[Rfam]
RNA sequence: AAGUGUUACAGCUCCUUUAGAAUUUGUCUAGCAGGCUUUCCGGUCCUUAUCCAGAAGACCCCU
Numbered sequence: 001a002a003g004u005g006u007u008a009c010a011g012c013u014c015c016u017u018u019a020g021a022a023u024u025u026g027u028c029u030a031g032c033a034g035g036c037u038u039u040c041c042g043g044u045c046c047u048u049a050u051c052c053a054g055a056a057g058a059c060c061c062c063u
Base pairs, nucleotide, nucleotide: 034060035059037057038056039055040054042052043051